[Rfam]
RNA sequence: GGUUUCCGGUUCACAUUCAUCGCUGUCGGUGGGUUGGUGGUGUUACCAACUCGCCGGUCGAUGAAUGACAACUGUGUCC
Numbered sequence: 001g002g003u004u005u006c007c008g009g010u011u012c013a014c015a016u017u018c019a020u021c022g023c024u025g026u027c028g029g030u031g032g033g034u035u036g037g038u039g040g041u042g043u044u045a046c047c048a049a050c051u052c053g054c055c056g057g058u059c060g061a062u063g064a065a066u067g068a069c070a071a072c073u074g075u076g077u078c079c
Stems, first nucleotide, its partner, number of pairs: 005076001007074002014067009025058007033050004
Rfam assigns this 79-nucleotide RNA from Sphaeramia orbicularis to the family "mir-181 microRNA precursor family".
Its family is annotated with miRNA-mediated post-transcriptional gene silencing and RISC complex in the Gene Ontology.
The base pairs follow the family's consensus structure, which was predicted with PFOLD.